[Rfam]
RNA: sRNA-Xcc1
RNA sequence: GGCGGGAUGAGAGGCCAAAAUACAAGACCCGCAAGGGGAAUAUGCCCGCCGCCUGAUAGCGGUAGUUGAGUCCCGCUCGCCCUCAU
Numbered sequence: 001g002g003c004g005g006g007a008u009g010a011g012a013g014g015c016c017a018a019a020a021u022a023c024a025a026g027a028c029c030c031g032c033a034a035g036g037g038g039a040a041u042a043u044g045c046c047c048g049c050c051g052c053c054u055g056a057u058a059g060c061g062g063u064a065g066u067u068g069a070g071u072c073c074c075g076c077u078c079g080c081c082c083u084c085a086u
Stems, first nucleotide, its partner, number of pairs: 001078002003075005013046003019041001028037003048063005